[Rfam]
RNA sequence: CAACCAGGACAGUGAUGGUCUGGUGAAUUGUAAGAAGUCAGCCGAAGCCAUAGUAGUCCCAACAGGGACGAAGGGC
Numbered sequence: 001c002a003a004c005c006a007g008g009a010c011a012g013u014g015a016u017g018g019u020c021u022g023g024u025g026a027a028u029u030g031u032a033a034g035a036a037g038u039c040a041g042c043c044g045a046a047g048c049c050a051u052a053g054u055a056g057u058c059c060c061a062a063c064a065g066g067g068a069c070g071a072a073g074g075g076c
Base pairs, nucleotide, nucleotide: 001025002024004023005022006021007020008019010017011016038045039044047076048075049074056069057068058067059066060065

Group II catalytic intron D1-D4-1: a 76-nucleotide RNA sequence from Salimicrobium jeotgali. Gene Ontology term of the family: Group II intron splicing. The pairing is the family consensus, mapped onto this sequence. NCBI's taxonomy places the organism under Bacteria, Bacillati, Bacilli, Caryophanales, Salimicrobium. On this family, see Chu et al., EMBO J 2001: "Control of branch-site choice by a group II intron".